[Rfam]
RNA sequence: ACCUGCAUUUGCCAGGGGUUGAGGUCUUGCCCGUGACCUGGUUGCUGAUAAUCCAGGGACAGGAGCCCCGAAACUGUUCCCCGUGUUUGGGUUCGAUCCUGUCCCUCCCAAACCCUGUAGCCUUCAGACA
Numbered sequence: 001a002c003c004u005g006c007a008u009u010u011g012c013c014a015g016g017g018g019u020u021g022a023g024g025u026c027u028u029g030c031c032c033g034u035g036a037c038c039u040g041g042u043u044g045c046u047g048a049u050a051a052u053c054c055a056g057g058g059a060c061a062g063g064a065g066c067c068c069c070g071a072a073a074c075u076g077u078u079c080c081c082c083g084u085g086u087u088u089g090g091g092u093u094c095g096a097u098c099c100u101g102u103c104c105c106u107c108c109c110a111a112a113c114c115c116u117g118u119a120g121c122c123u124u125c126a127g128a129c130a
Base pairs, nucleotide, nucleotide: 002057003056004055005054007052008051009050014046015045017043018042019041020040021039023038024037025036026035067127070125071124072123074120085113086112087111088110089109090104091103
RNA: Small nucleolar RNA SNORA71
Organism: Phaethon lepturus